Record summary:
The record is a 425-nucleotide RNA sequence from Otolemur garnettii, which matches "Small Cajal body-specific RNA 2" in Rfam. Rfam classes the family as a small Cajal body RNA. Gene Ontology terms of the family: RNA processing and nucleolus. For this family Rfam cites "Guide RNAs with 5' caps and novel box C/D snoRNA-like domains for modification of snRNAs in metazoa" (Tycowski et al., Curr Biol, 2004).
[Rfam]
RNA sequence: GCUUAUGGGAGGGAGAGCAGCCAGGGGCGAAGUUGUGUGUGUGUGGUGCUGCGGUGUCGCGUGGAAAGCGCGUGUGGGGCGAGUGUGAGUGUGCGCGCGAAUCUAAUUGAGUGUGCGCGCGUGGGGCGUGCUAGGUGAGUGUGUGCGCCCGCCCUGUGCCUCUUCCUACACCUACACUUUGAUCUUAUUUGAUCGGGUUGUGGCCCCAGCCCCGCCGGGCAGACCCGAAAUGAAAAGCUCUCCUCCUGCGAAGCCUCCUUUUCGGGGCGCUGUGCAGCGAGGCCCUUUGGGCGGCGGCAACGCCGCGGUCUCCGAGGUCCCGGAGUCGGUCCUGCGGGGCCCGGCGCUCAGAAGUGAUGAAUUGAUCAGAUAGACGAGGCCGGGAUCGUCCCGGGCCACUGAUUAUCGAGGCGAUUCUGAUCUGA
Numbered sequence: 001g002c003u004u005a006u007g008g009g010a011g012g013g014a015g016a017g018c019a020g021c022c023a024g025g026g027g028c029g030a031a032g033u034u035g036u037g038u039g040u041g042u043g044u045g046g047u048g049c050u051g052c053g054g055u056g057u058c059g060c061g062u063g064g065a066a067a068g069c070g071c072g073u074g075u076g077g078g079g080c081g082a083g084u085g086u087g088a089g090u091g092u093g094c095g096c097g098c099g100a101a102u103c104u105a106a107u108u109g110a111g112u113g114u115g116c117g118c119g120c121g122u123g124g125g126g127c128g129u130g131c132u133a134g135g136u137g138a139g140u141g142u143g144u145g146c147g148c149c150c151g152c153c154c155u156g157u158g159c160c161u162c163u164u165c166c167u168a169c170a171c172c173u174a175c176a177c178u179u180u181g182a183u184c185u186u187a188u189u190u191g192a193u194c195g196g197g198u199u200g201u202g203g204c205c206c207c208a209g210c211c212c213c214g215c216c217g218g219g220c221a222g223a224c225c226c227g228a229a230a231u232g233a234a235a236a237g238c239u240c241u242c243c244u245c246c247u248g249c250g251a252a253g254c255c256u257c258c259u260u261u262u263c264g265g266g267g268c269g270c271u272g273u274g275c276a277g278c279g280a281g282g283c284c285c286u287u288u289g290g291g292c293g294g295c296g297g298c299a300a301c302g303c304c305g306c307g308g309u310c311u312c313c314g315a316g317g318u319c320c321c322g323g324a325g326u327c328g329g330u331c332c333u334g335c336g337g338g339g340c341c342c343g344g345c346g347c348u349c350a351g352a353a354g355u356g357a358u359g360a361a362u363u364g365a366u367c368a369g370a371u372a373g374a375c376g377a378g379g380c381c382g383g384g385a386u387c388g389u390c391c392c393g394g395g396c397c398a399c400u401g402a403u404u405a406u407c408g409a410g411g412c413g414a415u416u417c418u419g420a421u422c423u424g425a
Stems, first nucleotide, its partner, number of pairs: 053160005058074006091108001093104001095102001111148003116143005122137002188236003193228004198223002202220001205219003209215002257317002262315006269309003274306002277303003282298003285294002325345005330339003349424004359417006378397004383392002